[Rfam]
RNA sequence: CCCGUACCCGUGGGAGAAUCGGACCGUUCGCGCAGUCCGGUGCCGAAGGAGCAACCGCCCCGGAAACUCUCAGGCCACACGGACCGCGGGUGCAUC
Dot-bracket structure: .....((((((((.....((((((..........)))))).(((((..(((...((.....))...))))).)))........)))))))).....
Glycine riboswitch aptamer: a 96-nucleotide sequence from Pukyongiella litopenaei. Taxonomically the source falls in Pukyongiella (Bacteria, Pseudomonadati, Pseudomonadota, Rhodobacterales).